[Rfam]
RNA sequence: UCUUCAUUUCACGUACUCUCUCAUCGGUCAGAGUGACGAGAGAGUGUGUGAAAUGAGGAGC
Numbered sequence: 001u002c003u004u005c006a007u008u009u010c011a012c013g014u015a016c017u018c019u020c021u022c023a024u025c026g027g028u029c030a031g032a033g034u035g036a037c038g039a040g041a042g043a044g045u046g047u048g049u050g051a052a053a054u055g056a057g058g059a060g061c
Stems, first nucleotide, its partner, number of pairs: 001059007010050001012048006019041004
Shown here is a 61-nucleotide sequence from Pristionchus pacificus, a member of the family "mir-8364 microRNA precursor family". Lineage of the source: Eukaryota > Protostomia > Ecdysozoa > Diplogasteroidea > Pristionchus. It scores 77 bits against the family's covariance model. Rfam links the family to the GO terms RISC complex and miRNA-mediated post-transcriptional gene silencing. The family's consensus secondary structure was predicted with RNAalifold.